[Rfam]
RNA sequence: UGAGGACCGAUAAGAGACCAACUGCAGACGGAAACUUAAGAGAAAUCAAAGGAAGAGCCCUUAAGGCGAAAGCGUUUUAAAGAGUAUACGAUAAAAAAUAGCUUUAAAACCCACCAAGGAUGAAGAGAUAGCAUCCAAGGAGCUAAAGUAAAUCUCACUUUAGACACUUAAGGAACUCGAACUAAGAGA
Numbered sequence: 001u002g003a004g005g006a007c008c009g010a011u012a013a014g015a016g017a018c019c020a021a022c023u024g025c026a027g028a029c030g031g032a033a034a035c036u037u038a039a040g041a042g043a044a045a046u047c048a049a050a051g052g053a054a055g056a057g058c059c060c061u062u063a064a065g066g067c068g069a070a071a072g073c074g075u076u077u078u079a080a081a082g083a084g085u086a087u088a089c090g091a092u093a094a095a096a097a098a099u100a101g102c103u104u105u106a107a108a109a110c111c112c113a114c115c116a117a118g119g120a121u122g123a124a125g126a127g128a129u130a131g132c133a134u135c136c137a138a139g140g141a142g143c144u145a146a147a148g149u150a151a152a153u154c155u156c157a158c159u160u161u162a163g164a165c166a167c168u169u170a171a172g173g174a175a176c177u178c179g180a181a182c183u184a185a186g187a188g189a
Stems, first nucleotide, its partner, number of pairs: 001048003011038004060172006074110009118136005125156005143163006
RNA: IMES-1 RNA motif